RNA sequence: CGAUGUUCUCAGGGCGGGGUGAAACUCCCCACCGGCGGUGAUGAGCGAUGGGCCACAAGUCCGGAGCGACGAGCCCGCGAGCGCCUUUGCCAAAAGGUGAAGGGUCAGCAGAUCCGGUGCGAUCCCGGAGCCGACGGUCAUAGUCCGGAUGAAAGAGGACGGGA
Numbered sequence: 001c002g003a004u005g006u007u008c009u010c011a012g013g014g015c016g017g018g019g020u021g022a023a024a025c026u027c028c029c030c031a032c033c034g035g036c037g038g039u040g041a042u043g044a045g046c047g048a049u050g051g052g053c054c055a056c057a058a059g060u061c062c063g064g065a066g067c068g069a070c071g072a073g074c075c076c077g078c079g080a081g082c083g084c085c086u087u088u089g090c091c092a093a094a095a096g097g098u099g100a101a102g103g104g105u106c107a108g109c110a111g112a113u114c115c116g117g118u119g120c121g122a123u124c125c126c127g128g129a130g131c132c133g134a135c136g137g138u139c140a141u142a143g144u145c146c147g148g149a150u151g152a153a154a155g156a157g158g159a160c161g162g163g164a
Stems, first nucleotide, its partner, number of pairs: 004161007017029003031144002033133002035078004073131002081109002113129005135147003

Rfam assigns this 164-nucleotide RNA from Notoacmeibacter marinus to the family "FMN riboswitch aptamer (RFN element)". Rfam links the family to the GO term FMN binding. Pairs were carried over by alignment from the consensus structure, which is taken from published work.